[Rfam]
RNA sequence: GUGAGUGCGGAAAGAUAAUCGCGGCAGCCCUUGUGGCUGAUGAGGAAAGUCCGAGCUCCGCAGGGCAGGAUGCUGGAUAACGUCCAGUGGGGGCGACCCUAAGGAAAGUGCCACAGAAAACAAACCGCCGGCUCGCCGGUAAGGAUGAAACGGUGCGGUAAGAGCGCACCAGCGGUCAAGUGAUUGGCCGGCUUGGUAAACCCCAUCCGGAGCAAGACCAAAUAGGGAAGGGAUGAAGCGGCCCGCUGAGCCUUCCGGGUAGCGUUGCUUGAACCUGCAGGCAACUGCAGGGCUAGAUAAAUGAUUAUCCUAGACAGAACUCGGCUUACUGAGCACUCACAACC
Numbered sequence: 001g002u003g004a005g006u007g008c009g010g011a012a013a014g015a016u017a018a019u020c021g022c023g024g025c026a027g028c029c030c031u032u033g034u035g036g037c038u039g040a041u042g043a044g045g046a047a048a049g050u051c052c053g054a055g056c057u058c059c060g061c062a063g064g065g066c067a068g069g070a071u072g073c074u075g076g077a078u079a080a081c082g083u084c085c086a087g088u089g090g091g092g093g094c095g096a097c098c099c100u101a102a103g104g105a106a107a108g109u110g111c112c113a114c115a116g117a118a119a120a121c122a123a124a125c126c127g128c129c130g131g132c133u134c135g136c137c138g139g140u141a142a143g144g145a146u147g148a149a150a151c152g153g154u155g156c157g158g159u160a161a162g163a164g165c166g167c168a169c170c171a172g173c174g175g176u177c178a179a180g181u182g183a184u185u186g187g188c189c190g191g192c193u194u195g196g197u198a199a200a201c202c203c204c205a206u207c208c209g210g211a212g213c214a215a216g217a218c219c220a221a222a223u224a225g226g227g228a229a230g231g232g233a234u235g236a237a238g239c240g241g242c243c244c245g246c247u248g249a250g251c252c253u254u255c256c257g258g259g260u261a262g263c264g265u266u267g268c269u270u271g272a273a274c275c276u277g278c279a280g281g282c283a284a285c286u287g288c289a290g291g292g293c294u295a296g297a298u299a300a301a302u303g304a305u306u307a308u309c310c311u312a313g314a315c316a317g318a319a320c321u322c323g324g325c326u327u328a329c330u331g332a333g334c335a336c337u338c339a340c341a342a343c344c
Stems, first nucleotide, its partner, number of pairs: 001340008010330001014309007022042002025039005047327003051324005056212004063244004068208005073087005088102001089100004103203002108201002110197003125144002127140005152170006172192001173190007216266003219262001226256006237247003274291007
Dot-bracket structure: ((((((((.(...(((((((.((.(((((.....))))).))....[[[.[[[[[((((...[[[[.((((((((((.....)))))(((((....)))).)((...(((((............(((((((....)))))..)).......((((((.......)))))).((((((((....))))))).)..)))..)))))))))))))...((((......((((((.....(((.]]]])))...)))))).....).))).......(((((((....)))))))...........)))))))..........]]]]]]]]..)..))))))))....
RNA: Bacterial RNase P class A
Organism: Acidaminococcus fermentans